[Rfam]
RNA: Bacterial large subunit ribosomal RNA, nucleotides 1636 to 1986
Organism: Paraburkholderia acidisoli
RNA sequence: UGAGAGAACUCGGGAGAAGGAACUCGGCAAAUUGGUACCGUAACUUCGGGAUAAGGUACGCCCCUGUAGCUUGAUGCGCCUGCGCGCAGAGGGUGAAGGGGUUGCAAUAAACUGGUGGCUGCGACUGUUUAAUAAAAACACAGCACUCUGCAAACACGAAAGUGGACGUAUAGGGUGUGACGCCUGCCCGGUGCCGGAAGAUUAAAUGAUGGGGUGCAAGCUCUUGAUUGAAGUCCCGGUAAACGGCGGCCGUAACUAUAACGGUCCUAAGGUAGCGAAAUUCCUUGUCGGGUAAGUUCCGACCUGCACGAAUGGCGUAACGAUGGCCACACUGUCUCCUCCCGAGACUCA
Numbered sequence: 001u002g003a004g005a006g007a008a009c010u011c012g013g014g015a016g017a018a019g020g021a022a023c024u025c026g027g028c029a030a031a032u033u034g035g036u037a038c039c040g041u042a043a044c045u046u047c048g049g050g051a052u053a054a055g056g057u058a059c060g061c062c063c064c065u066g067u068a069g070c071u072u073g074a075u076g077c078g079c080c081u082g083c084g085c086g087c088a089g090a091g092g093g094u095g096a097a098g099g100g101g102u103u104g105c106a107a108u109a110a111a112c113u114g115g116u117g118g119c120u121g122c123g124a125c126u127g128u129u130u131a132a133u134a135a136a137a138a139c140a141c142a143g144c145a146c147u148c149u150g151c152a153a154a155c156a157c158g159a160a161a162g163u164g165g166a167c168g169u170a171u172a173g174g175g176u177g178u179g180a181c182g183c184c185u186g187c188c189c190g191g192u193g194c195c196g197g198a199a200g201a202u203u204a205a206a207u208g209a210u211g212g213g214g215u216g217c218a219a220g221c222u223c224u225u226g227a228u229u230g231a232a233g234u235c236c237c238g239g240u241a242a243a244c245g246g247c248g249g250c251c252g253u254a255a256c257u258a259u260a261a262c263g264g265u266c267c268u269a270a271g272g273u274a275g276c277g278a279a280a281u282u283c284c285u286u287g288u289c290g291g292g293u294a295a296g297u298u299c300c301g302a303c304c305u306g307c308a309c310g311a312a313u314g315g316c317g318u319a320a321c322g323a324u325g326g327c328c329a330c331a332c333u334g335u336c337u338c339c340u341c342c343c344g345a346g347a348c349u350c351a
Base pairs, nucleotide, nucleotide: 001351002350003349004348009346010345011344012343013342014341015340016339018337019336020335035059036058037057038056039055044049060102061101062100063099064098065097075088076087077086078085079084103107115330116329117328118327119326120325121324122322123321126140127139128138143178144177145176146175147174148173149172150171151168155164156163157162181317182316183315184314186247187246188245191244192243193240194239195238196237197236200235201234202233206229211224212223213222214221215220248266249265250264251263252262253261267271277304287303288302289301290300291299292298